[Rfam]
RNA sequence: AGCCUGUUGUCAAUGAUGGAUUGUUGUUGAAGCUGAAUAUAACUGAGUUGAGUCAACAUUUCGUCACUACCACUGAGACAACAGAGAU
Dot-bracket structure: (.(((((((((.................................................................)))))))).).)
Numbered sequence: 001a002g003c004c005u006g007u008u009g010u011c012a013a014u015g016a017u018g019g020a021u022u023g024u025u026g027u028u029g030a031a032g033c034u035g036a037a038u039a040u041a042a043c044u045g046a047g048u049u050g051a052g053u054c055a056a057c058a059u060u061u062c063g064u065c066a067c068u069a070c071c072a073c074u075g076a077g078a079c080a081a082c083a084g085a086g087a088u
Stems, first nucleotide, its partner, number of pairs: 001088001003086001004084008